[Rfam]
Record summary: Ribosomal protein L10 leader: a 156-nucleotide RNA sequence from Syntrophobotulus glycolicus. The match comes from Rfam's covariance-model search (64 bits). The organism belongs to Syntrophobotulus glycolicus, within Bacteria. It is annotated as a cis-regulatory leader. Pairs were carried over by alignment from the consensus structure, which was predicted with CMfinder.
RNA sequence: GACAAUAAAAUAUUUCCGCUUAAGACAGUAGGUGCUUCAUUUAGCUUAAUGUCCUGCCGAGGUGGUGCUUUGUUUUGAUUAGAAGUCUUUUGAUAUUGCUCUGAUUAUGACAUUGACAAACCUCUGCAUGAAAGCGGAGGUUUUUUGAUUACCGGU
Numbered sequence: 001g002a003c004a005a006u007a008a009a010a011u012a013u014u015u016c017c018g019c020u021u022a023a024g025a026c027a028g029u030a031g032g033u034g035c036u037u038c039a040u041u042u043a044g045c046u047u048a049a050u051g052u053c054c055u056g057c058c059g060a061g062g063u064g065g066u067g068c069u070u071u072g073u074u075u076u077g078a079u080u081a082g083a084a085g086u087c088u089u090u091u092g093a094u095a096u097u098g099c100u101c102u103g104a105u106u107a108u109g110a111c112a113u114u115g116a117c118a119a120a121c122c123u124c125u126g127c128a129u130g131a132a133a134g135c136g137g138a139g140g141u142u143u144u145u146u147g148a149u150u151a152c153c154g155g156u
Stems, first nucleotide, its partner, number of pairs: 028057005034045003120141008
From the family's description: This family is a putative r-protein leader autoregulatory structure found in B. subtilis and other low-GC Gram-positive bacteria. Its family is annotated with regulation of gene expression in the Gene Ontology.